[Rfam]
A member of the RNA family "Acido-Lenti-1 RNA", 45 nucleotides long. The match comes from Rfam's covariance-model search (40 bits). By type it is a small RNA.

RNA sequence: CCCAGGGCGUUGCCCUGGGCUAUCCUAUUUCGGCCCUACAGGCCG
Numbered sequence: 001c002c003c004a005g006g007g008c009g010u011u012g013c014c015c016u017g018g019g020c021u022a023u024c025c026u027a028u029u030u031c032g033g034c035c036c037u038a039c040a041g042g043c044c045g
Stems, first nucleotide, its partner, number of pairs: 001019008032044004